Shown here is a 90-nucleotide RNA from Aneurinibacillus danicus, a member of the family "Glycine riboswitch aptamer". Gene Ontology term of the family: glycine biosynthetic process. The pairing is the family consensus, mapped onto this sequence.
RNA sequence: AUGAAAGCAGAGGGAGAGAACGCGUCGGUCGCGUCGCCGAAGGAGCAAGAUACCUUUCAAUCUCUCAGGCAAAAGUACCUCUGCGGGACG
Numbered sequence: 001a002u003g004a005a006a007g008c009a010g011a012g013g014g015a016g017a018g019a020a021c022g023c024g025u026c027g028g029u030c031g032c033g034u035c036g037c038c039g040a041a042g043g044a045g046c047a048a049g050a051u052a053c054c055u056u057u058c059a060a061u062c063u064c065u066c067a068g069g070c071a072a073a074a075g076u077a078c079c080u081c082u083g084c085g086g087g088a089c090g
Stems, first nucleotide, its partner, number of pairs: 007084007020034004036070003039066002043064003049057002